[Rfam]
RNA: Purine riboswitch aptamer
Organism: Blautia pseudococcoides
RNA sequence: UAAUACGGUGAAAACAGGACUUAUAUAUGUUCAUAAUGCGGGUUGAACGUUUCUACCAGCUACCGAAAUAGCUGACUAUAAGUCCCCUGAUCUUGGGG
Numbered sequence: 001u002a003a004u005a006c007g008g009u010g011a012a013a014a015c016a017g018g019a020c021u022u023a024u025a026u027a028u029g030u031u032c033a034u035a036a037u038g039c040g041g042g043u044u045g046a047a048c049g050u051u052u053c054u055a056c057c058a059g060c061u062a063c064c065g066a067a068a069u070a071g072c073u074g075a076c077u078a079u080a081a082g083u084c085c086c087c088u089g090a091u092c093u094u095g096g097g098g
Stems, first nucleotide, its partner, number of pairs: 018084008029048005034042001057074006